[Rfam]
RNA: U7 small nuclear RNA
Organism: Carlito syrichta
RNA sequence: AAGUAUUAUAGCCCUUUUAGAAUUUGUCUAACAAUUUUUCUGUUUUUUACCGGAAAACCU
Numbered sequence: 001a002a003g004u005a006u007u008a009u010a011g012c013c014c015u016u017u018u019a020g021a022a023u024u025u026g027u028c029u030a031a032c033a034a035u036u037u038u039u040c041u042g043u044u045u046u047u048u049a050c051c052g053g054a055a056a057a058c059c060u
Stems, first nucleotide, its partner, number of pairs: 036057007044049001